[Rfam]
Nucleotides: 067
Stems, first nucleotide, its partner, number of pairs: 001067004
Number, partner (000 for none) and nucleotide at each position: 001067g002066a003065c004064a005000g006000u007000g008000a009000u010000g011000u012000a013000a014000u015000a016000a017000u018000c019000c020000u021000a022000u023000u024000c025000c026000a027000u028000u029000g030000c031000u032000g033000a034000g035000a036000a037000c038000u039000c040000a041000c042000a043000a044000u045000g046000u047000g048000g049000a050000a051000a052000u053000a054000u055000c056000c057000u058000a059000a060000c061000u062000g063000a064004u065003g066002u067001u